Overview: This 75-nucleotide sequence from Chrysodeixis includens belongs to the Rfam family "mir-10 microRNA precursor family". Its family is annotated with miRNA-mediated post-transcriptional gene silencing and RISC complex in the Gene Ontology. A reference for the family is Lee and Ambros (2001), "An extensive class of small RNAs in Caenorhabditis elegans", Science. The match comes from Rfam's covariance-model search (54 bits).
Nucleotides: 075
Stems, first nucleotide, its partner, number of pairs: 002073004007068001010065002016060004021055010
Number, partner (000 for none) and nucleotide at each position: 001000c002073g003072u004071g005070g006000u007068a008000u009000a010065c011064c012000c013000u014000g015000u016060a017059g018058a019057u020000c021055c022054g023053g024052g025051c026050u027049u028048u029047u030046g031000u032000a033000g034000u035000c036000u037000a038000g039000g040000a041000c042000c043000a044000a045000u046030c047029a048028a049027a050026a051025g052024c053023u054022u055021g056000c057019g058018u059017c060016u061000a062000c063000a064011g065010g066000u067000a068007u069000c070005u071004c072003a073002c074000g075000g